[Rfam]
RNA sequence: UUGGGCCAGUGAUGAUUGAAAAAGUUUUGCCUACAUUGUUUGAUUUACCACUGAGAUAUAAACUAUAAUAAUCACUCUGAGGCUCAU
Numbered sequence: 001u002u003g004g005g006c007c008a009g010u011g012a013u014g015a016u017u018g019a020a021a022a023a024g025u026u027u028u029g030c031c032u033a034c035a036u037u038g039u040u041u042g043a044u045u046u047a048c049c050a051c052u053g054a055g056a057u058a059u060a061a062a063c064u065a066u067a068a069u070a071a072u073c074a075c076u077c078u079g080a081g082g083c084u085c086a087u
Stems, first nucleotide, its partner, number of pairs: 002086001004084004

A member of the RNA family "Small nucleolar RNA SNORD34" from Eutrema salsugineum, 87 nucleotides long. On this family, see Galardi et al., Mol Cell Biol 2002: "Purified box C/D snoRNPs are able to reproduce site-specific 2'-O-methylation of target RNA in vitro". snoRNA U34 is found in intron 5 of the ribosomal protein L13a gene in humans. Lineage of the source: Eukaryota > Streptophyta > Gunneridae > Brassicaceae > Eutrema. By type it is a C/D-box small nucleolar RNA. Its family is annotated with RNA processing and nucleolus in the Gene Ontology. The family is grouped with related families in Rfam's "SNORD34 clan".